The record is a 107-nucleotide sequence from Variovorax sp. CF079, which matches "Glycine riboswitch aptamer" in Rfam. About the family: This family represents the bacterial glycine riboswitch. NCBI's taxonomy places the organism under Bacteria, Betaproteobacteria, Burkholderiales, Comamonadaceae, Variovorax.

[Rfam]
RNA sequence: CAAUUGCCGUCUGGAGAGUCAUCACGCCAGGUGAUGCGCCGAAGGAGCAAGUCCGUUGCAGGUCGCAGCGGAUGAAUCUCUCAGGUACCAAGGACAGGGGGAGCGGC
Numbered sequence: 001c002a003a004u005u006g007c008c009g010u011c012u013g014g015a016g017a018g019u020c021a022u023c024a025c026g027c028c029a030g031g032u033g034a035u036g037c038g039c040c041g042a043a044g045g046a047g048c049a050a051g052u053c054c055g056u057u058g059c060a061g062g063u064c065g066c067a068g069c070g071g072a073u074g075a076a077u078c079u080c081u082c083a084g085g086u087a088c089c090a091a092g093g094a095c096a097g098g099g100g101g102a103g104c105g106g107c
Base pairs, nucleotide, nucleotide: 007101008100010098011097012096013095020036021035022034023033038086039085040084041082042081045080046079047078051073052072053071054070055069056068057067058066059065